Shown here is a 61-nucleotide RNA, a member of the family "Plastid-psbN 5UTR RNA".
On this family, see Richter et al., Plant Commun 2023: "Retrograde signaling in plants: A critical review focusing on the GUN pathway and beyond".
Rfam's curators write: Plastid psbN is a non-coding RNA (ncRNA) recognised in plastids. It was reported as a conserved 11 stem-loop in the prime untranslated region (5UTR) of psbN genes. It has been reported that the motif is retained in a subset of mature transcripts in barley, which can suggests a possible role in transcript alternative 5 prime processing.
The family's consensus secondary structure was predicted with LocARNA.
[Rfam]
Nucleotides: 061
Stems, first nucleotide, its partner, number of pairs: 017045005023039005
Number, partner (000 for none) and nucleotide at each position: 001000u002000g003000c004000g005000a006000c007000a008000c009000c010000c011000c012000u013000c014000a015000a016000a017045g018044g019043a020042g021041u022000c023039g024038u025037u026036c027035c028000c029000c030000a031000c032000u033000u034000g035027g036026g037025a038024g039023c040000u041021a042020c043019u044018u045017u046000a047000c048000c049000a050000u051000a052000u053000u054000c055000c056000a057000a058000a059000u060000u061000c